[Rfam]
RNA sequence: UAGUUCUGGUAUGGAUUUUGAGGGGAACCCCCACGCCAAAUUAAAAAAAAAGGUGUGGGGUCCCCCCCAAAAUCCAUACCAGACCCUUA
Number, nucleotide and partner (000 for none) at each position: 001u000002a087003g086004u000005u083006c082007u081008g080009g079010u000011a000012u000013g075014g074015a073016u072017u071018u070019u069020g068021a000022g067023g066024g065025g064026a000027a000028c059029c000030c000031c058032c057033a056034c055035g054036c053037c000038a000039a000040a000041u000042u000043a000044a000045a000046a000047a000048a000049a000050a000051a000052g000053g036054u035055g034056u033057g032058g031059g028060g000061u000062c000063c000064c025065c024066c023067c022068c020069a019070a018071a017072a016073u015074c014075c013076a000077u000078a000079c009080c008081a007082g006083a005084c000085c000086c003087u002088u000089a000
This 89-nucleotide RNA sequence from Aquarana catesbeiana belongs to the Rfam family "mir-541 microRNA precursor family". Pairs were carried over by alignment from the consensus structure, which was predicted with RNAalifold. On this family, see Sewer et al., BMC Bioinformatics 2005: "Identification of clustered microRNAs using an ab initio prediction method".